[Rfam]
RNA: MIR5269 microRNA precursor family
Organism: Medicago truncatula
RNA sequence: UUGAUUUAAAUAAUUGUUGGUCUACACUUUGAAAAUGGAACCAACACAAAGUGGUGGGACAUACAUUGAUUUUAUCCAA
Number, nucleotide and partner (000 for none) at each position: 001u079002u078003g077004a000005u000006u074007u000008a072009a071010a070011u069012a000013a067014u000015u065016g064017u063018u000019g000020g000021u000022c057023u056024a055025c053026a052027c051028u050029u049030u048031g047032a000033a000034a000035a000036u000037g000038g000039a000040a000041c000042c000043a000044a000045c000046a000047c031048a030049a029050a028051g027052u026053g025054g000055u024056g023057g022058g000059a000060c000061a000062u000063a017064c016065a015066u000067u013068g000069a011070u010071u009072u008073u000074a006075u000076c000077c003078a002079a001